Small nucleolar RNA SNORD58: a 67-nucleotide sequence from Maylandia zebra. snoRNA U58 is found in introns 1, 3 and 6 of the ribosomal protein RPL17 gene in humans.
RNA sequence: UUGCAGUGAUGACCAUUUAGGACACCUUUGUAUUAACCAUGAAAAGAACAAUUACAGUCUGAGCAAU
Numbered sequence: 001u002u003g004c005a006g007u008g009a010u011g012a013c014c015a016u017u018u019a020g021g022a023c024a025c026c027u028u029u030g031u032a033u034u035a036a037c038c039a040u041g042a043a044a045a046g047a048a049c050a051a052u053u054a055c056a057g058u059c060u061g062a063g064c065a066a067u
Base pairs, nucleotide, nucleotide: 001066002065003064004063
The base pairs follow the family's consensus structure, which was predicted with PFOLD. The family's RNA type in Rfam is C/D-box small nucleolar RNA. The family is grouped with related families in Rfam's "SNORD58 clan".